Description:
Rfam assigns this 562-nucleotide part of an RNA from Candidatus Gallionella acididurans to the family "Bacterial small subunit ribosomal RNA". The organism belongs to Gallionella, within Bacteria. A reference for the family is Yusupov et al. (2001), "Crystal structure of the ribosome at 5.5 A resolution", Science. Rfam 15.1 lists 42,628 matches to the family in 10,626 species.
RNA sequence: GAACUGAAGAGUUUGAUCCUGGCUCAGAUUGAACGCUGGCGGCAUGCUUUACACAUGCAAGUCGAACGGCAGCACGGGGGCAACCCUGGUGGCGAGUGGCGAACGGGUGAGUAAUAUAUCGGAACAUGUCCGGAAGUGGGGGAUAGCUCGGCGAAAGCCGGAUUAAUACCGCAUAUGCCCUGAGGGGGAAAGGAGGGGAUCCGCAAGGACCUUUCGCUUUCGGAGUGGCCGAUAUCGGAUUAGCUAGUUGGUGAGGUAAAGGCUCACCAAGGCGACGAUCCGUAGCUGGUCUGAGAGGACGACCAGCCACACUGGAACUGAGACACGGUCCAGACUCCUACGGGAGGCAGCAGUGGGGAAUUUUGGACAAUGGGGGAAACCCUGAUCCAGCCAUGCCGCGUGAGUGAAGAAGGCCUUCGGGUUGUAAAGCUCUUUCAGACGGAAAGAAACGGUUACGGCUAAUACCCGUGACUAAUGACGGUACCGUCAGAAGAAGCACCGGCUAACUACGUGCCAGCAGCCGCGGUAAUACGUAGGGUGCGAGCGUUAAUCGGAAUUACUG
Numbered sequence: 001g002a003a004c005u006g007a008a009g010a011g012u013u014u015g016a017u018c019c020u021g022g023c024u025c026a027g028a029u030u031g032a033a034c035g036c037u038g039g040c041g042g043c044a045u046g047c048u049u050u051a052c053a054c055a056u057g058c059a060a061g062u063c064g065a066a067c068g069g070c071a072g073c074a075c076g077g078g079g080g081c082a083a084c085c086c087u088g089g090u091g092g093c094g095a096g097u098g099g100c101g102a103a104c105g106g107g108u109g110a111g112u113a114a115u116a117u118a119u120c121g122g123a124a125c126a127u128g129u130c131c132g133g134a135a136g137u138g139g140g141g142g143a144u145a146g147c148u149c150g151g152c153g154a155a156a157g158c159c160g161g162a163u164u165a166a167u168a169c170c171g172c173a174u175a176u177g178c179c180c181u182g183a184g185g186g187g188g189a190a191a192g193g194a195g196g197g198g199a200u201c202c203g204c205a206a207g208g209a210c211c212u213u214u215c216g217c218u219u220u221c222g223g224a225g226u227g228g229c230c231g232a233u234a235u236c237g238g239a240u241u242a243g244c245u246a247g248u249u250g251g252u253g254a255g256g257u258a259a260a261g262g263c264u265c266a267c268c269a270a271g272g273c274g275a276c277g278a279u280c281c282g283u284a285g286c287u288g289g290u291c292u293g294a295g296a297g298g299a300c301g302a303c304c305a306g307c308c309a310c311a312c313u314g315g316a317a318c319u320g321a322g323a324c325a326c327g328g329u330c331c332a333g334a335c336u337c338c339u340a341c342g343g344g345a346g347g348c349a350g351c352a353g354u355g356g357g358g359a360a361u362u363u364u365g366g367a368c369a370a371u372g373g374g375g376g377a378a379a380c381c382c383u384g385a386u387c388c389a390g391c392c393a394u395g396c397c398g399c400g401u402g403a404g405u406g407a408a409g410a411a412g413g414c415c416u417u418c419g420g421g422u423u424g425u426a427a428a429g430c431u432c433u434u435u436c437a438g439a440c441g442g443a444a445a446g447a448a449a450c451g452g453u454u455a456c457g458g459c460u461a462a463u464a465c466c467c468g469u470g471a472c473u474a475a476u477g478a479c480g481g482u483a484c485c486g487u488c489a490g491a492a493g494a495a496g497c498a499c500c501g502g503c504u505a506a507c508u509a510c511g512u513g514c515c516a517g518c519a520g521c522c523g524c525g526g527u528a529a530u531a532c533g534u535a536g537g538g539u540g541c542g543a544g545c546g547u548u549a550a551u552c553g554g555a556a557u558u559a560c561u562g
Stems, first nucleotide, its partner, number of pairs: 009025005027552004032548006039399006046391001047357001052355003056352003061100003066097002069093002075088005107310003116235007125227002130223007138172001140170002146163001148161005178187003192215006236282003243273003248270008285307004289300004312333005335346004363389001365388003371384005402432004412423004436493001438488005446479001452473001454471001496541005507536005517524002